[Rfam]
RNA sequence: AGCUGCGUGGUGAACACAGAGCGAACUAUUCUUUCGCCUUUUACUAAAGAAUACCGUGUGUUCUCCACAUUAAGCAGCAUACACCAAUUUUUUUAGGGUUUUUCUAUUUUGUGGAGAA
Numbered sequence: 001a002g003c004u005g006c007g008u009g010g011u012g013a014a015c016a017c018a019g020a021g022c023g024a025a026c027u028a029u030u031c032u033u034u035c036g037c038c039u040u041u042u043a044c045u046a047a048a049g050a051a052u053a054c055c056g057u058g059u060g061u062u063c064u065c066c067a068c069a070u071u072a073a074g075c076a077g078c079a080u081a082c083a084c085c086a087a088u089u090u091u092u093u094u095a096g097g098g099u100u101u102u103u104c105u106a107u108u109u110u111g112u113g114g115a116g117a118a
Stems, first nucleotide, its partner, number of pairs: 003077004008067003012063007027053008100118006

Shown here is a 118-nucleotide RNA from Aquilegia coerulea, a member of the family "U5 spliceosomal RNA". Rfam describes the family as follows. U5 RNA is a component of both types of known spliceosome. The precise function of this molecule is unknown, though it is known that the 5' loop is required for splice site selection and p220 binding, and that both the 3' stem-loop and the Sm site are important for Sm protein binding and cap methylation. The source organism's lineage runs through Eukaryota, Embryophyta, Euphyllophyta, Mesangiospermae and Aquilegia. Pairs were carried over by alignment from the consensus structure, which is taken from published work.